[Rfam]
RNA sequence: GGUCAUGAGUACCAGCGUUAAGCCCCGGCUUGCUGGUCGGCAACCCUCCACCGCGGCGGGGUGCUCCGGGUGACGACCAGGCCGUUGCCUGAUUGGGUGCGGCAAGCGCGGACU
Numbered sequence: 001g002g003u004c005a006u007g008a009g010u011a012c013c014a015g016c017g018u019u020a021a022g023c024c025c026c027g028g029c030u031u032g033c034u035g036g037u038c039g040g041c042a043a044c045c046c047u048c049c050a051c052c053g054c055g056g057c058g059g060g061g062u063g064c065u066c067c068g069g070g071u072g073a074c075g076a077c078c079a080g081g082c083c084g085u086u087g088c089c090u091g092a093u094u095g096g097g098u099g100c101g102g103c104a105a106g107c108g109c110g111g112a113c114u
Base pairs, nucleotide, nucleotide: 001078002077003076004075009038011037012036013035014034015033016032021030022029039065040064041063044061045060046059048056049055081103082102083101084100086099087098088097089096090095
Dot-bracket structure: ((((....(.((((((....((......)).)))))))(((..(((.((.....))..))).))).........))))..((((.(((((....)))))))))...........
A member of the RNA family "SAM (S-adenosyl methionine) riboswitch aptamer" from Gordonia effusa, 114 nucleotides long. From the family's description: SAM-IV is a mRNA element that regulates gene expression via direct sensing of S-adenosylmethionine (SAM or AdoMet). SAM-IV riboswitches share conserved nucleotide positions with the previously described SAM-I riboswitches sequence analysis and molecular recognition experiments suggest that SAM-I and SAM-IV riboswitches share similar ligand binding sites, but have different scaffolds. It scores 111 bits against the family's covariance model. On this family, see Weinberg et al., RNA 2008: "The aptamer core of SAM-IV riboswitches mimics the ligand-binding site of SAM-I riboswitches". Pairs were carried over by alignment from the consensus structure, which is taken from published work. Lineage of the source: Bacteria > Actinomycetota > Actinomycetes > Gordonia > Gordonia effusa.